[Rfam]
RNA sequence: UGAUGCCCCUCACCCACUGUUGAAGAUCCCAGGUGGGCGAGGGGUCAGCAGGGAUC
Numbered sequence: 001u002g003a004u005g006c007c008c009c010u011c012a013c014c015c016a017c018u019g020u021u022g023a024a025g026a027u028c029c030c031a032g033g034u035g036g037g038c039g040a041g042g043g044g045u046c047a048g049c050a051g052g053g054a055u056c
Base pairs, nucleotide, nucleotide: 006044007043008042009041010040011039013037014036015035016034017033018032025056026055027054028053029052030051
RNA: Antizyme RNA frameshifting stimulation element